This 86-nucleotide sequence from Winogradskya consettensis belongs to the Rfam family "ZMP/ZTP riboswitch aptamer (pfl RNA motif)". Taxonomically the source falls in Winogradskya (Bacteria, Bacillati, Actinomycetota, Micromonosporaceae).

RNA sequence: CUCCCAGGCCGCUACUGGCGAAGGUGGAGCACCACCGGGGAACGGCCGUGUCAUUCGUGUUGGCGCCGACCGCCUGGGCGCUUCCG
Numbered sequence: 001c002u003c004c005c006a007g008g009c010c011g012c013u014a015c016u017g018g019c020g021a022a023g024g025u026g027g028a029g030c031a032c033c034a035c036c037g038g039g040g041a042a043c044g045g046c047c048g049u050g051u052c053a054u055u056c057g058u059g060u061u062g063g064c065g066c067c068g069a070c071c072g073c074c075u076g077g078g079c080g081c082u083u084c085c086g
Stems, first nucleotide, its partner, number of pairs: 004050001007047005015039002017074004024035004063081005